[Rfam]
Rfam assigns this 73-nucleotide RNA from Sitophilus oryzae to the family "mir-208 microRNA precursor family". The match comes from Rfam's covariance-model search (57 bits). The organism belongs to Sitophilus, within Eukaryota. On this family, see Lagos-Quintana et al., RNA 2003: "New microRNAs from mouse and human".

RNA sequence: UUUGUCAAACCAGCUGUUCGUUUGACUUAUAUCGUUGUUAUAUAAGUCAAACGAACAGCUGGUUUGACAAAGG
Numbered sequence: 001u002u003u004g005u006c007a008a009a010c011c012a013g014c015u016g017u018u019c020g021u022u023u024g025a026c027u028u029a030u031a032u033c034g035u036u037g038u039u040a041u042a043u044a045a046g047u048c049a050a051a052c053g054a055a056c057a058g059c060u061g062g063u064u065u066g067a068c069a070a071a072g073g
Stems, first nucleotide, its partner, number of pairs: 003069004008064002011061008020052001023049002027045006